Bacterial large subunit ribosomal RNA: a 588-nucleotide part of an RNA from Kozakia baliensis.

RNA sequence: CCCGCGGUCAGACGGAAAGACCCUAUGAACCUUUACUGCAGCUUUGCAGUGGCAUCAGAGACAUUCUGUGUAGGAUAGGUGGGAGGCUUUGAAACCGGGGCGCCAGUUCCGGUGGAGCCGUCCUUGAAAUACCACCCUGAAUUUUUCUGAUGUCUAACCGAGACCAGUCUAGCCUGGUCCGGGACCCUGCAUGGUGGGCAGUUUGACUGGGGCGGUCGCCUCCCAAAGUGUAACGGAGGCGCGCGAUGGUGGGCUCAAGUCGGUCGGACAUCGACUGUUGAGUGCAAUGGCAUAAGCCCGCCUGACUGCGAGAGUGACAGCUCGAGCAGAGACGAAAGUCGGCCAUAGUGAUCCGGUGGUCCCACGUGGACGGGCCAUCGCUCAACGGAUAAAAGGUACUCUAGGGAUAACAGGCUGAUCUCCCCCAAGAGUCCACAUCGACGGGGAGGUUUGGCACCUCGAUGUCGGCUCAUCACAUCCUGGGGCUGGAGCAGGUCCCAAGGGUUCGGCUGUUCGCCGAUUAAAGUGGUACGUGAGCUGGGUUUAGAACGUCGUGAGACAGUUCGGUCCCUAUCUGCCGUGGGUGUA
Numbered sequence: 001c002c003c004g005c006g007g008u009c010a011g012a013c014g015g016a017a018a019g020a021c022c023c024u025a026u027g028a029a030c031c032u033u034u035a036c037u038g039c040a041g042c043u044u045u046g047c048a049g050u051g052g053c054a055u056c057a058g059a060g061a062c063a064u065u066c067u068g069u070g071u072a073g074g075a076u077a078g079g080u081g082g083g084a085g086g087c088u089u090u091g092a093a094a095c096c097g098g099g100g101c102g103c104c105a106g107u108u109c110c111g112g113u114g115g116a117g118c119c120g121u122c123c124u125u126g127a128a129a130u131a132c133c134a135c136c137c138u139g140a141a142u143u144u145u146u147c148u149g150a151u152g153u154c155u156a157a158c159c160g161a162g163a164c165c166a167g168u169c170u171a172g173c174c175u176g177g178u179c180c181g182g183g184a185c186c187c188u189g190c191a192u193g194g195u196g197g198g199c200a201g202u203u204u205g206a207c208u209g210g211g212g213c214g215g216u217c218g219c220c221u222c223c224c225a226a227a228g229u230g231u232a233a234c235g236g237a238g239g240c241g242c243g244c245g246a247u248g249g250u251g252g253g254c255u256c257a258a259g260u261c262g263g264u265c266g267g268a269c270a271u272c273g274a275c276u277g278u279u280g281a282g283u284g285c286a287a288u289g290g291c292a293u294a295a296g297c298c299c300g301c302c303u304g305a306c307u308g309c310g311a312g313a314g315u316g317a318c319a320g321c322u323c324g325a326g327c328a329g330a331g332a333c334g335a336a337a338g339u340c341g342g343c344c345a346u347a348g349u350g351a352u353c354c355g356g357u358g359g360u361c362c363c364a365c366g367u368g369g370a371c372g373g374g375c376c377a378u379c380g381c382u383c384a385a386c387g388g389a390u391a392a393a394a395g396g397u398a399c400u401c402u403a404g405g406g407a408u409a410a411c412a413g414g415c416u417g418a419u420c421u422c423c424c425c426c427a428a429g430a431g432u433c434c435a436c437a438u439c440g441a442c443g444g445g446g447a448g449g450u451u452u453g454g455c456a457c458c459u460c461g462a463u464g465u466c467g468g469c470u471c472a473u474c475a476c477a478u479c480c481u482g483g484g485g486c487u488g489g490a491g492c493a494g495g496u497c498c499c500a501a502g503g504g505u506u507c508g509g510c511u512g513u514u515c516g517c518c519g520a521u522u523a524a525a526g527u528g529g530u531a532c533g534u535g536a537g538c539u540g541g542g543u544u545u546a547g548a549a550c551g552u553c554g555u556g557a558g559a560c561a562g563u564u565c566g567g568u569c570c571c572u573a574u575c576u577g578c579c580g581u582g583g584g585u586g587u588a
Stems, first nucleotide, its partner, number of pairs: 001584008010576003014571002022405004027401002029397005035202004042194002045191004051154011063142004068137001078136005085119003094113008158182003162179006205217004218240006241386001243343002249301006255281002258276006282291002306329004312323003331340003354380007362373002414455003418452001419449007429439002466541001467539004471533001472530005479504002482499006506520005547565004551560003
The literature on the family includes a 2002 paper in BMC Bioinformatics by Cannone et al., "The comparative RNA web (CRW) site: an online database of comparative sequence and structure information for ribosomal, intron, and other RNAs". NCBI's taxonomy places the organism under Bacteria, Pseudomonadota, Alphaproteobacteria, Acetobacteraceae, Kozakia.